[Rfam]
RNA sequence: GGGAGAUGAUGAGUGGUAAAAUCUCGCAUUUUUACUGCGAGAGGGGUGCCUGCCCCGAAUAAGCCUGUUACGACAACAGGGCACUCCAAUCGUUUACCAUCUGAUCCC
Numbered sequence: 001g002g003g004a005g006a007u008g009a010u011g012a013g014u015g016g017u018a019a020a021a022u023c024u025c026g027c028a029u030u031u032u033u034a035c036u037g038c039g040a041g042a043g044g045g046g047u048g049c050c051u052g053c054c055c056c057g058a059a060u061a062a063g064c065c066u067g068u069u070a071c072g073a074c075a076a077c078a079g080g081g082c083a084c085u086c087c088a089a090u091c092g093u094u095u096a097c098c099a100u101c102u103g104a105u106c107c108c
Base pairs, nucleotide, nucleotide: 001108002107003106004105014099015098016097017096018095023041024040025039026038027037043087044086045085046084047083048082049081050080065079066078067077068076
This 108-nucleotide RNA sequence from Dichanthelium oligosanthes belongs to the Rfam family "Small nucleolar RNA Z279/snoR105/snoR108". Rfam 15.1 lists 906 matches to the family in 223 species. Rfam classes the family as a C/D-box small nucleolar RNA. Gene Ontology terms of the family: RNA processing and nucleolus. For this family Rfam cites "Experimental RNomics: identification of 140 candidates for small non-messenger RNAs in the plant Arabidopsis thaliana" (Marker et al., Curr Biol, 2002). Pairs were carried over by alignment from the consensus structure, which was predicted with PFOLD. From the family's description: This family includes the plant snoRNAs known as Z279, snoR105 and snoR108.